[Rfam]
The record is a 123-nucleotide RNA from Tepidibacillus fermentans, which matches "Ribosomal protein L10 leader" in Rfam. By type it is a cis-regulatory leader. For this family Rfam cites "Diverse mechanisms for regulating ribosomal protein synthesis in Escherichia coli" (Zengel and Lindahl, Prog Nucleic Acid Res Mol Biol, 1994).
RNA sequence: UUUUAUAAGAUAGCUAUACCGUAGACAGUAGGUGCCAUUUGGCUUAAUUUCCUACCGAGGUAAUCAGAUAUUCUUCGGGUAUCGUGUGCCUUCGCUGUUUGCGGAGGCCUUUUUUAUGUGCUU
Numbered sequence: 001u002u003u004u005a006u007a008a009g010a011u012a013g014c015u016a017u018a019c020c021g022u023a024g025a026c027a028g029u030a031g032g033u034g035c036c037a038u039u040u041g042g043c044u045u046a047a048u049u050u051c052c053u054a055c056c057g058a059g060g061u062a063a064u065c066a067g068a069u070a071u072u073c074u075u076c077g078g079g080u081a082u083c084g085u086g087u088g089c090c091u092u093c094g095c096u097g098u099u100u101g102c103g104g105a106g107g108c109c110u111u112u113u114u115u116a117u118g119u120g121c122u123u
Base pairs, nucleotide, nucleotide: 028055029054030053031052032051034043035042036041086110088108089107090106091105092104093103094102095101